The family of this 113-nucleotide RNA sequence from Streptomyces alkaliterrae is "Glycine riboswitch aptamer". This family represents the bacterial glycine riboswitch.
[Rfam]
RNA sequence: UGAACCCGCGCGGGAGAGUCCCUUCGAUGAGCCGCCGGCACCGCCGGUGGGAAGGGACGCCGAAGGAGCAAGUCCUCCCUUGAAUCUCUCAGGCCCCGUACCGCGCGGGCGAG
Numbered sequence: 001u002g003a004a005c006c007c008g009c010g011c012g013g014g015a016g017a018g019u020c021c022c023u024u025c026g027a028u029g030a031g032c033c034g035c036c037g038g039c040a041c042c043g044c045c046g047g048u049g050g051g052a053a054g055g056g057a058c059g060c061c062g063a064a065g066g067a068g069c070a071a072g073u074c075c076u077c078c079c080u081u082g083a084a085u086c087u088c089u090c091a092g093g094c095c096c097c098g099u100a101c102c103g104c105g106c107g108g109g110c111g112a113g
Base pairs, nucleotide, nucleotide: 006108007107008106009105010104011103012102013101019057020056021055022054023053024052025051059094060093061092062090063089066088067087068086072081

A search with the family's covariance model found it, with a score of 58 bits.